RNA sequence: UCUUAUGAAAACCAAUCUUAUUGAAAAGUUAGGAUGCAAAACCACAGAUCUACGGCUUCUGCUAUGAUGGCUGGGUUACAGAA
Numbered sequence: 001u002c003u004u005a006u007g008a009a010a011a012c013c014a015a016u017c018u019u020a021u022u023g024a025a026a027a028g029u030u031a032g033g034a035u036g037c038a039a040a041a042c043c044a045c046a047g048a049u050c051u052a053c054g055g056c057u058u059c060u061g062c063u064a065u066g067a068u069g070g071c072u073g074g075g076u077u078a079c080a081g082a083a
Stems, first nucleotide, its partner, number of pairs: 013036001017032002020029003040077004045073003048068003055062002
c-di-GMP-I riboswitch aptamer: an 83-nucleotide sequence from Bacillus sp. V5-8f. It scores 53 bits against the family's covariance model. Lineage of the source: Bacteria > Bacillati > Caryophanales > Bacillaceae > Bacillus.